[Rfam]
Rfam assigns this 201-nucleotide RNA sequence from Xenopus tropicalis to the family "U2 spliceosomal RNA".
RNA sequence: AUUGAUUUGUUAAAAGAUCAAUAAAGUUAAUUAAAAAAAAAAAAAAAAUCUGUUCUUAUCAGUUUAAUAUCUGAUACGUUCCCUAUCUGGGGACCAUAUAUUAAAUGGAUUUUUGGAACAGGGAGAUGGAAGAAGAGCUUGCUCUGUCCACUCCACGCAUCGACCUGGUAUUGCAGUACCUCCAGGACCGGUGCACCUCUC
Numbered sequence: 001a002u003u004g005a006u007u008u009g010u011u012a013a014a015a016g017a018u019c020a021a022u023a024a025a026g027u028u029a030a031u032u033a034a035a036a037a038a039a040a041a042a043a044a045a046a047a048a049u050c051u052g053u054u055c056u057u058a059u060c061a062g063u064u065u066a067a068u069a070u071c072u073g074a075u076a077c078g079u080u081c082c083c084u085a086u087c088u089g090g091g092g093a094c095c096a097u098a099u100a101u102u103a104a105a106u107g108g109a110u111u112u113u114u115g116g117a118a119c120a121g122g123g124a125g126a127u128g129g130a131a132g133a134a135g136a137g138c139u140u141g142c143u144c145u146g147u148c149c150a151c152u153c154c155a156c157g158c159a160u161c162g163a164c165c166u167g168g169u170a171u172u173g174c175a176g177u178a179c180c181u182c183c184a185g186g187a188c189c190g191g192u193g194c195a196c197c198u199c200u201c
Base pairs, nucleotide, nucleotide: 002034004032005031006030007029057076058075059074060073061072062071078094079093080092081091082090083089122154123153124152125151128148129147134145135144136143137142157194158193159192160191161190162189164186165185166184167183168182